[Rfam]
RNA sequence: GCGUGUUGGCAGUGUGGUUAGCUGGUUGUGUGUUUUACAUUCGAACACGACCGCUAUCGACACUGCAUUUACGA
Dot-bracket structure: .((((..(..(((((.(.(((.((((((((...............))))))))))).).))))).)...)))).
mir-34 microRNA precursor family: a 74-nucleotide RNA.
A reference for the family is Lim et al. (2003), "Vertebrate microRNA genes", Science.
Its family is annotated with RISC complex and miRNA-mediated post-transcriptional gene silencing in the Gene Ontology.
The match comes from Rfam's covariance-model search (57 bits).
The family's consensus secondary structure was predicted with RNAalifold.
Clan: mir-34 clan.
About the family: Human mir-34a was discovered computationally and later experimentally verified. The mature sequence is excised from the 5' arm of the hairpin.